[Rfam]
RNA sequence: CUGUCCUGGCCGGUGCUUUUCUGCUCCCCUGCACUCGGUUUUGCAGGGUAGCCUGGCAGGACACACAGCAUCCCCCUCUCAGUUUAGGAGAGCCGUCCUAAGAAUGGGGCUGGCUCUUAAAGGCACGAGAGGACAGU
Numbered sequence: 001c002u003g004u005c006c007u008g009g010c011c012g013g014u015g016c017u018u019u020u021c022u023g024c025u026c027c028c029c030u031g032c033a034c035u036c037g038g039u040u041u042u043g044c045a046g047g048g049u050a051g052c053c054u055g056g057c058a059g060g061a062c063a064c065a066c067a068g069c070a071u072c073c074c075c076c077u078c079u080c081a082g083u084u085u086a087g088g089a090g091a092g093c094c095g096u097c098c099u100a101a102g103a104a105u106g107g108g109g110c111u112g113g114c115u116c117u118u119a120a121a122g123g124c125a126c127g128a129g130a131g132g133a134c135a136g137u
Stems, first nucleotide, its partner, number of pairs: 002063007010056002023052003027048006075132006082124004088118007095110006
Source information: Small Cajal body specific RNA 11: a 137-nucleotide RNA from Tupaia belangeri. Pairs were carried over by alignment from the consensus structure, which was predicted with RNAalifold. Rfam's curators write: scaRNAs are a specific class of small nuclear RNAs which localise to the Cajal bodies and guide the modification of RNA polymerase II transcribed spliceosomal RNAs U1, U2, U4, U5 and U12. ACA57 belongs to the H/ACA box class of guide RNAs as it has the predicted hairpin-hinge-hairpin-tail structure, conserved H/ACA-box motifs and is found associated with GAR1. ACA57 is predicted to guide the pseudouridylation of the U5 spliceosomal RNA at position U43. Its family is annotated with nucleolus, Cajal body and RNA processing in the Gene Ontology.